Background:
Rfam assigns this 344-nucleotide RNA sequence from Dubosiella newyorkensis to the family "Bacterial RNase P class B". By type it is a ribozyme. It scores 272 bits against the family's covariance model. Gene Ontology terms of the family: dimeric ribonuclease P complex, tRNA processing and ribonuclease P activity.

RNA sequence: CUAAUUCGACAGUUGCUGGCUAUUUAUAUAUAGUUAGAGGAAAGUCCAUGCUCGCACGAUCUGAGAUGAUCGUAGUGUUUGUGCUGGAUGAAGUCAUAAAUCCAGGCAUGAUCUUCAUGACGGCGAAGCAAGAUACCUAAGGGAAACUAUGGUUGCGCUUCUUAAAGUGCCACAGAGACGAGCUUUUAUGGAAACAUAAGAGGUGGAACGGGUAAACCCCGCAAGCGAGAAACCCAAAUUUGGUAGGGGAACCGAUGGAGACGAAUCAGGAAGUCGAAGUUGGAUGCGAAAGCAUAGAUAAAUAACUGUCGCCGGCUUGCCGGAACAGAACAUGGCUUAUGAAU
Numbered sequence: 001c002u003a004a005u006u007c008g009a010c011a012g013u014u015g016c017u018g019g020c021u022a023u024u025u026a027u028a029u030a031u032a033g034u035u036a037g038a039g040g041a042a043a044g045u046c047c048a049u050g051c052u053c054g055c056a057c058g059a060u061c062u063g064a065g066a067u068g069a070u071c072g073u074a075g076u077g078u079u080u081g082u083g084c085u086g087g088a089u090g091a092a093g094u095c096a097u098a099a100a101u102c103c104a105g106g107c108a109u110g111a112u113c114u115u116c117a118u119g120a121c122g123g124c125g126a127a128g129c130a131a132g133a134u135a136c137c138u139a140a141g142g143g144a145a146a147c148u149a150u151g152g153u154u155g156c157g158c159u160u161c162u163u164a165a166a167g168u169g170c171c172a173c174a175g176a177g178a179c180g181a182g183c184u185u186u187u188a189u190g191g192a193a194a195c196a197u198a199a200g201a202g203g204u205g206g207a208a209c210g211g212g213u214a215a216a217c218c219c220c221g222c223a224a225g226c227g228a229g230a231a232a233c234c235c236a237a238a239u240u241u242g243g244u245a246g247g248g249g250a251a252c253c254g255a256u257g258g259a260g261a262c263g264a265a266u267c268a269g270g271a272a273g274u275c276g277a278a279g280u281u282g283g284a285u286g287c288g289a290a291a292g293c294a295u296a297g298a299u300a301a302a303u304a305a306c307u308g309u310c311g312c313c314g315g316c317u318u319g320c321c322g323g324a325a326c327a328g329a330a331c332a333u334g335g336c337u338u339a340u341g342a343a344u
Stems, first nucleotide, its partner, number of pairs: 004344003008310007016037006042338003046335005051229005056073006079224005084105006106121001107119005122219002125161004135153003141148002167217002169213003183202008233248003252283005284295004312323004
Dot-bracket structure: ...(((.(((((((.((((((..........))))))....[[[.[[[[[(((((((((((......)))))).....(((((((((((..........))))))((((((...))))).)((.((((......(((...((....))..)))....)))).....(((((...........((((((((....))))))))........)))..))))))))))))))...(((..........)))...(((((......................)))))((((....))))........))))))).((((....)))).......]]]]]]]]...)))
The organism belongs to Dubosiella, within Bacteria.